[Rfam]
RNA: Small nucleolar RNA snoR2/U65
RNA sequence: GGUUCGAUGCCACGUCGCCGGUAGCCGCGGCCGUGACCGGCGGUGCUAUGAUUGAACCGAUACAAAUUUCAAGUUUCGUGGCUGAUAGGAAUCUGUGGGUUUCAGAUCAUGGAGAUAAUCCACGGAGCCAUUUUCUGUGAUUACAUUC
Number, nucleotide and partner (000 for none) at each position: 001g000002g057003u056004u055005c054006g053007a052008u051009g049010c000011c000012a000013c045014g044015u043016c042017g041018c040019c000020g038021g037022u036023a000024g031025c030026c000027g000028c000029g000030g025031c024032c000033g000034u000035g000036a022037c021038c020039g000040g018041c017042g016043g015044u014045g013046c000047u000048a000049u009050g000051a008052u007053u006054g005055a004056a003057c002058c000059g000060a000061u000062a000063c000064a000065a000066a000067u000068u000069u000070c000071a000072a000073g000074u000075u000076u140077c139078g138079u137080g136081g000082c000083u000084g000085a000086u000087a000088g129089g128090a000091a000092u000093c125094u124095g123096u000097g121098g120099g119100u118101u117102u000103c000104a000105g000106a000107u000108c000109a000110u000111g000112g000113a000114g000115a000116u000117a101118a100119u099120c098121c097122a000123c095124g094125g093126a000127g000128c089129c088130a000131u000132u000133u000134u000135c000136u080137g079138u078139g077140a076141u000142u000143a000144c000145a000146u000147u000148c000